[Rfam]
RNA: Streptomyces-metH RNA
Organism: Streptomyces auratus
RNA sequence: CUGUCCAGGGCGUGGAACGGGGAACAUGUGUACCGGACCGGCAGCUACGCUGGCCGGGUGCGCCCUCUGAAGGAGGGUGCAAAGCCGACAGCCGUCGCAACCACGGGAGCAUCUCCAUG
Numbered sequence: 001c002u003g004u005c006c007a008g009g010g011c012g013u014g015g016a017a018c019g020g021g022g023a024a025c026a027u028g029u030g031u032a033c034c035g036g037a038c039c040g041g042c043a044g045c046u047a048c049g050c051u052g053g054c055c056g057g058g059u060g061c062g063c064c065c066u067c068u069g070a071a072g073g074a075g076g077g078u079g080c081a082a083a084g085c086c087g088a089c090a091g092c093c094g095u096c097g098c099a100a101c102c103a104c105g106g107g108a109g110c111a112u113c114u115c116c117a118u119g
Base pairs, nucleotide, nucleotide: 059081060080061079062078064076065075066074067073084098085097087096088095089094